RNA sequence: GGCAGUGACACGGGGUGCCGCAUCCGCGGCUGAGAACAGACCCGUCGAACCUGAUCUAGUUCGUACUAGCGAAGGGAUGUCGCCCAUGAGCGAU
Dot-bracket structure: .....(((((((((.((((((....))))).......)..)))).....(((...((((......))))...)))..)))))............
Overview: This 94-nucleotide RNA sequence from Microbacterium sp. SA39 belongs to the Rfam family "TPP riboswitch aptamer (THI element)". The family's consensus secondary structure is taken from published work. Lineage of the source: Bacteria > Actinomycetota > Actinomycetes > Micrococcales > Microbacterium.